[Rfam]
RNA sequence: ACGAGCUGGAUGAGUGUGAGGCAUUGGAUCGAUUUCACUUAAUCCAAGCCCCACAUUCAUCAAGGGAUUCAU
Dot-bracket structure: .....((.((((((((((.(((.((((((.((......)).))))))))).)))))))))).))........